RNA sequence: UUCUUUUAGGUCUGUGGUUGCGGUUUAUCCAAGUCCACGGCAGAUGCGGUCAAAAGGAUCCACGUAAGUUAUCGAUUUUUCGAAACGAGCAUGGCGCAUACUAGAGGUAAGCCGUACCGCUCGAAAUUGCAGCAUGGGGCUGCACGGGCGAGAGGGCGAUGUAUUAAAGCUUAGUCCCAGUGCGCGAGUGUGGGGUCAAAAACCAGGUCAGCUGAAAGAA
Numbered sequence: 001u002u003c004u005u006u007u008a009g010g011u012c013u014g015u016g017g018u019u020g021c022g023g024u025u026u027a028u029c030c031a032a033g034u035c036c037a038c039g040g041c042a043g044a045u046g047c048g049g050u051c052a053a054a055a056g057g058a059u060c061c062a063c064g065u066a067a068g069u070u071a072u073c074g075a076u077u078u079u080u081c082g083a084a085a086c087g088a089g090c091a092u093g094g095c096g097c098a099u100a101c102u103a104g105a106g107g108u109a110a111g112c113c114g115u116a117c118c119g120c121u122c123g124a125a126a127u128u129g130c131a132g133c134a135u136g137g138g139g140c141u142g143c144a145c146g147g148g149c150g151a152g153a154g155g156g157c158g159a160u161g162u163a164u165u166a167a168a169g170c171u172u173a174g175u176c177c178c179a180g181u182g183c184g185c186g187a188g189u190g191u192g193g194g195g196u197c198a199a200a201a202a203c204c205a206g207g208u209c210a211g212c213u214g215a216a217a218g219a220a
Stems, first nucleotide, its partner, number of pairs: 001220009012211003015205005037191003040050001044099005059094002069084001072082001092198001113184005118150005154177004161170002
raiA RNA: a 220-nucleotide RNA.
Pairs were carried over by alignment from the consensus structure, which is taken from published work.
By type it is a riboswitch.
The sequence is in the family's curated seed alignment.